RNA sequence: UGGGGUAGAACUCGAUCCAGUCGCAUCGCAAUGAUGGGCACAGAGGUCCGUCACGCCGGCAACGGACCUCGCUGGCAGUCUAGCUGCCCGGCCUCGCCGUGAGGCCAUUGGGAACCAAGUCAAC
Number, nucleotide and partner (000 for none) at each position: 001u000002g000003g000004g000005g000006u000007a000008g000009a000010a000011c000012u000013c000014g000015a000016u000017c000018c000019a000020g000021u000022c038023g000024c036025a035026u034027c033028g000029c000030a000031a000032u000033g027034a026035u025036g024037g000038g022039c000040a000041c000042a000043g000044a000045g068046g067047u066048c065049c064050g063051u062052c000053a000054c000055g000056c000057c000058g000059g000060c000061a000062a051063c050064g049065g048066a047067c046068c045069u000070c000071g000072c000073u000074g088075g087076c086077a085078g084079u083080c000081u000082a000083g079084c078085u077086g076087c075088c074089c000090g106091g105092c104093c103094u102095c101096g000097c000098c000099g000100u000101g095102a094103g093104g092105c091106c090107a000108u000109u000110g000111g000112g000113a000114a000115c000116c000117a000118a000119g000120u000121c000122a000123a000124c000